A member of the RNA family "mir-32 microRNA precursor family", 66 nucleotides long. The sequence is in the family's curated seed alignment.
RNA sequence: GGAGAUAUUGCACAUUACUAAGUUGCACGUUCUCACGGCCUCAGUGCAAUUUAGUGUGUGCGAUAC
Number, nucleotide and partner (000 for none) at each position: 001g000002g000003a000004g000005a000006u065007a064008u063009u062010g061011c060012a059013c058014a057015u056016u000017a055018c054019u053020a052021a051022g050023u049024u048025g047026c046027a045028c044029g000030u000031u000032c000033u000034c000035a000036c000037g000038g000039c000040c000041u000042c000043a000044g028045u027046g026047c025048a024049a023050u022051u021052u020053a019054g018055u017056g015057u014058g013059u012060g011061c010062g009063a008064u007065a006066c000